This 199-nucleotide RNA from Polypterus senegalus belongs to the Rfam family "Small nucleolar RNA U3".
The family's consensus secondary structure is taken from published work.
Rfam describes the family as follows. Small nucleolar RNAs (snoRNAs) are involved in the processing and modification of rRNA in the nucleolus.
It scores 110 bits against the family's covariance model.
The family is grouped with related families in Rfam's "U3 clan".
RNA sequence: AAGGCUAUACUUUAGGAUCAUUUCUAUAGUUUGUUCCUAGAGAAUGUGUUUCAGUGUUGGUCUCGCUACCACAUGAAGAUUGACUUUGUUUUCUUCUGAGCGUGAUGGUCAGUAGUAAGUGUUUGUCUGUAAGACUACUUCUACGCUUGAUGAUCGUUUCUUCUGGAGAAGCAGAAGAAGGAAACAUUCUCUGAGUGGU
Dot-bracket structure: .(((.((.(((.(((((....))))).))).))..))).............................(((((..............(((((((((((..(((.........(((..((((((((.......)))).)))).)))..........)))(.((((....)))).)..)))))))))))........)))))